[Rfam]
RNA sequence: CCCUUAUCUUUUAAAAGUUUUAAGUUGGUCCCUUAUUUUUAUUUUAGGUUUCAAGUUGGUCCCUCCGCUCAAUUUUUUUACUAUUACCGUUAAAUUUGGACACAUGUCAUCUGUCCAAGUGUGCCACGUGUCCAAAUUAGUUUGCCAUGUGUCAAAACUUAACGGAAAUAGUAAAAAAUUUGACUAGAAUGACCAACUUGAAACCUAAAAUAAAGAUAAAGGACAAACUUGAAACUUUUAAAAGAUAAGGGA
Numbered sequence: 001c002c003c004u005u006a007u008c009u010u011u012u013a014a015a016a017g018u019u020u021u022a023a024g025u026u027g028g029u030c031c032c033u034u035a036u037u038u039u040u041a042u043u044u045u046a047g048g049u050u051u052c053a054a055g056u057u058g059g060u061c062c063c064u065c066c067g068c069u070c071a072a073u074u075u076u077u078u079u080a081c082u083a084u085u086a087c088c089g090u091u092a093a094a095u096u097u098g099g100a101c102a103c104a105u106g107u108c109a110u111c112u113g114u115c116c117a118a119g120u121g122u123g124c125c126a127c128g129u130g131u132c133c134a135a136a137u138u139a140g141u142u143u144g145c146c147a148u149g150u151g152u153c154a155a156a157a158c159u160u161a162a163c164g165g166a167a168a169u170a171g172u173a174a175a176a177a178a179u180u181u182g183a184c185u186a187g188a189a190u191g192a193c194c195a196a197c198u199u200g201a202a203a204c205c206u207a208a209a210a211u212a213a214a215g216a217u218a219a220a221g222g223a224c225a226a227a228c229u230u231g232a233a234a235c236u237u238u239u240a241a242a243a244g245a246u247a248a249g250g251g252a
Stems, first nucleotide, its partner, number of pairs: 002250007023229003028224002031221001033219011045207003
RNA: MIR2655 microRNA precursor family
Organism: Trifolium subterraneum